[Rfam]
RNA sequence: GAGUCUAACAUAUAUGCGAGUGUUUGGGUGAUUAAACCCUUGCGCGUAAUGAAAGUAAUUUUGGUGAGAUCCGGGAAAAAUUUUUCGGAGCAUCAUCGACCGAUCAGGAUAUUUUUUGAUAGAUUUGAGUAAGAGCAUAUCUGCUAGGACCCGAAAGAUGGUGAACUAUGCCUGAAUAGAGUGAAGCUAGAGGGAACUUUGGUGGAGGCUCGAAGCGGUUCUGACGUGCAAAUCGAUCGUCAAAUUUGGGUAUAGGGGCGAAAGACUAAUCGAACCAUCUAAUAGCUGGUU
Numbered sequence: 001g002a003g004u005c006u007a008a009c010a011u012a013u014a015u016g017c018g019a020g021u022g023u024u025u026g027g028g029u030g031a032u033u034a035a036a037c038c039c040u041u042g043c044g045c046g047u048a049a050u051g052a053a054a055g056u057a058a059u060u061u062u063g064g065u066g067a068g069a070u071c072c073g074g075g076a077a078a079a080a081u082u083u084u085u086c087g088g089a090g091c092a093u094c095a096u097c098g099a100c101c102g103a104u105c106a107g108g109a110u111a112u113u114u115u116u117u118g119a120u121a122g123a124u125u126u127g128a129g130u131a132a133g134a135g136c137a138u139a140u141c142u143g144c145u146a147g148g149a150c151c152c153g154a155a156a157g158a159u160g161g162u163g164a165a166c167u168a169u170g171c172c173u174g175a176a177u178a179g180a181g182u183g184a185a186g187c188u189a190g191a192g193g194g195a196a197c198u199u200u201g202g203u204g205g206a207g208g209c210u211c212g213a214a215g216c217g218g219u220u221c222u223g224a225c226g227u228g229c230a231a232a233u234c235g236a237u238c239g240u241c242a243a244a245u246u247u248g249g250g251u252a253u254a255g256g257g258g259c260g261a262a263a264g265a266c267u268a269a270u271c272g273a274a275c276c277a278u279c280u281a282a283u284a285g286c287u288g289g290u291u
Base pairs, nucleotide, nucleotide: 005147006146007145009143010142012140013139014138015137016136017135020045021044022043026039027038028037029036049056050055063097064096065095066094067093070089071088072087073086074085075084099130100129101127102126103125104123105122111116150289151288153286157279158278159277160276161275162274166255167254168253169252170251171250172249173248174247175246176245177243179211180210181209182208186203187202188201189200190199191198192197215240216239217238218237220236221235223234224233257267258266

The record is a 291-nucleotide part of an RNA from Funneliformis mosseae, which matches "Eukaryotic large subunit ribosomal RNA" in Rfam. It scores 3108 bits against the family's covariance model. Lineage of the source: Eukaryota > Opisthokonta > Glomeromycotina > Glomeromycetes > Funneliformis. Gene Ontology terms of the family: ribosome and structural constituent of ribosome.